[Rfam]
Overview
Rfam assigns this 103-nucleotide RNA to the family "SAM-I/IV (S-adenosyl methionine) riboswitch aptamer". Clan: SAM clan.
RNA sequence: CCCAAGCAUCAAGAGAGGGGCCCUCGCCCCCACCAACCUGCCCAACCCGGCAAGGUGGUCGUCCUUCGGGAGAUGUGGCCGAUCCGGCAACAAACGGGUGCAG
Numbered sequence: 001c002c003c004a005a006g007c008a009u010c011a012a013g014a015g016a017g018g019g020g021c022c023c024u025c026g027c028c029c030c031c032a033c034c035a036a037c038c039u040g041c042c043c044a045a046c047c048c049g050g051c052a053a054g055g056u057g058g059u060c061g062u063c064c065u066u067c068g069g070g071a072g073a074u075g076u077g078g079c080c081g082a083u084c085c086g087g088c089a090a091c092a093a094a095c096g097g098g099u100g101c102a103g
Base pairs, nucleotide, nucleotide: 006076007075008074009073010072015031017030018029019028020027021026032059033058034057037055038054039053040051041050042049044099046097047096078088079087080086081085